[Rfam]
A member of the RNA family "SAM riboswitch aptamer (S box leader)" from Flavisolibacter sp., 127 nucleotides long.
Nucleotides: 127
Stems, first nucleotide, its partner, number of pairs: 002126007013043005021032003026097004044089001046087002049085002051082003093119001098116006
Number, partner (000 for none) and nucleotide at each position: 001000c002126a003125c004124u005123u006122a007121u008120c009000a010000a011000g012000a013043a014042a015041g016040g017039c018000u019000g020000a021032g022031g023030g024000a025000u026097a027096u028095g029094g030023c031022c032021c033000g034000a035000u036000g037000a038000a039017g040016c041015c042014u043013u044089g045000a046087c047086a048000a049085c050084c051082u052081g053080c054000c055000a056000c057000a058000g059000u060000u061000u062000g063000u064000g065000u066000c067000u068000c069000a070000c071000a072000a073000a074000c075000u076000g077000c078000g079000u080053g081052c082051a083000a084050g085049g086047u087046g088000c089044c090000a091000a092000c093119u094029c095028c096027a097026u098116c099115u100114c101113g102112c103111a104000g105000g106000a107000u108000u109000a110000u111103u112102g113101c114100g115099g116098g117000a118000c119093a120008g121007a122006u123005a124004a125003g126002u127000c
The source organism's lineage runs through Bacteria, Bacteroidota, Chitinophagia, Chitinophagales and Flavisolibacter.
It scores 76 bits against the family's covariance model.